Annotation: The family of this 33-nucleotide RNA sequence is "L31-Firmicutes ribosomal protein leader". For this family Rfam cites "Discovery of 20 novel ribosomal leader candidates in bacteria and archaea" (Eckert and Weinberg, BMC Microbiol, 2020). The base pairs follow the family's consensus structure, which is taken from published work. By type it is a cis-regulatory leader.
RNA sequence: CUUUGGCAAAAGUAAGUGCCAAGGCGAAAGGAG
Numbered sequence: 001c002u003u004u005g006g007c008a009a010a011a012g013u014a015a016g017u018g019c020c021a022a023g024g025c026g027a028a029a030g031g032a033g
Stems, first nucleotide, its partner, number of pairs: 001024008